RNA sequence: UAAAAGGGUGCGUGGCGAUAUUCCUUUUGCUUACGAGGGUAUCAAAUACCAUAUGAACUUUAUUGUUCAUGCAGAAUCGUCAUCAAGAGAUUUUGCGCACAUAAUUUUUUGAGUAUUAUGGGCGGUCGUCUUGGCUUCGCUUAAGCCGACGCUGCCCUC
Numbered sequence: 001u002a003a004a005a006g007g008g009u010g011c012g013u014g015g016c017g018a019u020a021u022u023c024c025u026u027u028u029g030c031u032u033a034c035g036a037g038g039g040u041a042u043c044a045a046a047u048a049c050c051a052u053a054u055g056a057a058c059u060u061u062a063u064u065g066u067u068c069a070u071g072c073a074g075a076a077u078c079g080u081c082a083u084c085a086a087g088a089g090a091u092u093u094u095g096c097g098c099a100c101a102u103a104a105u106u107u108u109u110u111g112a113g114u115a116u117u118a119u120g121g122g123c124g125g126u127c128g129u130c131u132u133g134g135c136u137u138c139g140c141u142u143a144a145g146c147c148g149a150c151g152c153u154g155c156c157c158u159c
Base pairs, nucleotide, nucleotide: 008100009099010098011097012096013051014050015049017047052071053070054069055068056067057066058065072095073094074093075092076091077090078089120158121156122155123154124153125152127151128150129149130148